RNA sequence: AUGAACAUAGCAGGAGAGAUUUUUCCCAUGGCAGUACGGAUGGGGAAGGCACCGAAGAAGUAAAUCUUUCAGGUCAAAGGACUGCUAUGGGACG
Numbered sequence: 001a002u003g004a005a006c007a008u009a010g011c012a013g014g015a016g017a018g019a020u021u022u023u024u025c026c027c028a029u030g031g032c033a034g035u036a037c038g039g040a041u042g043g044g045g046a047a048g049g050c051a052c053c054g055a056a057g058a059a060g061u062a063a064a065u066c067u068u069u070c071a072g073g074u075c076a077a078a079g080g081a082c083u084g085c086u087a088u089g090g091g092a093c094g
Stems, first nucleotide, its partner, number of pairs: 006089008020049010051074003054070002058068003
RNA: Glycine riboswitch aptamer